Source information
Rfam assigns this 35-nucleotide RNA sequence from Niastella koreensis to the family "DUF805b RNA". By type it is a cis-regulatory element. Pairs were carried over by alignment from the consensus structure, which is taken from published work.
RNA sequence: UUAGGGGAUACCGAAAACCUAAAACAGAGUAGGUA
Number, nucleotide and partner (000 for none) at each position: 001u000002u021003a020004g019005g018006g000007g000008a000009u000010a034011c033012c032013g000014a000015a000016a000017a000018c005019c004020u003021a002022a000023a000024a000025c000026a000027g000028a000029g000030u000031a000032g012033g011034u010035a000